[Rfam]
Description:
The record is a 190-nucleotide sequence from Pholiota conissans, which matches "U2 spliceosomal RNA" in Rfam. The match comes from Rfam's covariance-model search (104 bits). About the family: U2 is a small nuclear RNA (snRNA) component of the spliceosome (involved in pre-mRNA splicing). Complementary binding between U2 snRNA (in an area lying towards the 5' end but 3' to hairpin I) and the branchpoint sequence (BPS) of the intron results the bulging out of an unpaired adenosine, on the BPS, which initiates a nucleophilic attack at the intronic 5' splice site, thus starting the first of two transesterification reactions that mediate splicing. Taxonomically the source falls in Pholiota (Eukaryota, Fungi, Agaricomycetidae, Strophariaceae). A reference for the family is Zwieb (1997), "The uRNA database", Nucleic Acids Res. Rfam classes the family as a spliceosomal small nuclear RNA.
RNA sequence: CCACCACUCUGGCCUUUUGGCUUAGAUCAAGUGUAGUAUCUGUUCUUAAUAGUUUAACCACUAUUAUGGGGGCACCGCCUCUAUUUCUGGUUAUCUUAUUUUUGCCGCCCCAGCUCCCCAGGCUCUGCUUGCAUCCUGCGGACAUGAUGACUUUGCCGCUGCACUCACUGGCAUGUGUUGUCGAGGGAUU
Numbered sequence: 001c002c003a004c005c006a007c008u009c010u011g012g013c014c015u016u017u018u019g020g021c022u023u024a025g026a027u028c029a030a031g032u033g034u035a036g037u038a039u040c041u042g043u044u045c046u047u048a049a050u051a052g053u054u055u056a057a058c059c060a061c062u063a064u065u066a067u068g069g070g071g072g073c074a075c076c077g078c079c080u081c082u083a084u085u086u087c088u089g090g091u092u093a094u095c096u097u098a099u100u101u102u103u104g105c106c107g108c109c110c111c112a113g114c115u116c117c118c119c120a121g122g123c124u125c126u127g128c129u130u131g132c133a134u135c136c137u138g139c140g141g142a143c144a145u146g147a148u149g150a151c152u153u154u155g156c157c158g159c160u161g162c163a164c165u166c167a168c169u170g171g172c173a174u175g176u177g178u179u180g181u182c183g184a185g186g187g188a189u190u
Stems, first nucleotide, its partner, number of pairs: 008026003011022004047066006067083007115142003119138004126133002145183006152175001154173004